The family of this 89-nucleotide sequence from Desulfosporosinus sp. Tol-M is "c-di-GMP-I riboswitch aptamer". Taxonomically the source falls in Desulfosporosinus (Bacteria, Bacillati, Clostridia, Eubacteriales). Its family is annotated with cyclic-di-GMP binding in the Gene Ontology. The base pairs follow the family's consensus structure, which is taken from published work. It scores 82 bits against the family's covariance model.
RNA sequence: AAAUGAUAAAGGCAAACUCGAUGAAAAUCGAGGACGCAAAACUACGAGUCUACAGCUUCAAUAGAGGCCAGGAUAGUCGGGUUGCCAUA
Numbered sequence: 001a002a003a004u005g006a007u008a009a010a011g012g013c014a015a016a017c018u019c020g021a022u023g024a025a026a027a028u029c030g031a032g033g034a035c036g037c038a039a040a041a042c043u044a045c046g047a048g049u050c051u052a053c054a055g056c057u058u059c060a061a062u063a064g065a066g067g068c069c070a071g072g073a074u075a076g077u078c079g080g081g082u083u084g085c086c087a088u089a
Base pairs, nucleotide, nucleotide: 012037013036017032018031019030020029021028022027040083041082042081043080045079046078047077048074049073050072055068056067057066058065